The record is a 52-nucleotide RNA sequence, which matches "S4-Clostridia ribosomal protein leader" in Rfam. It is annotated as a cis-regulatory leader. The sequence is in the family's curated seed alignment. Pairs were carried over by alignment from the consensus structure, which is taken from published work. The family is grouped with related families in Rfam's "Ribosomal Protein S4 Leader clan". On this family, see Eckert and Weinberg, BMC Microbiol 2020: "Discovery of 20 novel ribosomal leader candidates in bacteria and archaea".

RNA sequence: GAAAGGUCGUGCGAACACGGCUGGAUACACGCAUACCUGUAUCCCAAUUAGG
Numbered sequence: 001g002a003a004a005g006g007u008c009g010u011g012c013g014a015a016c017a018c019g020g021c022u023g024g025a026u027a028c029a030c031g032c033a034u035a036c037c038u039g040u041a042u043c044c045c046a047a048u049u050a051g052g
Stems, first nucleotide, its partner, number of pairs: 005022007023044007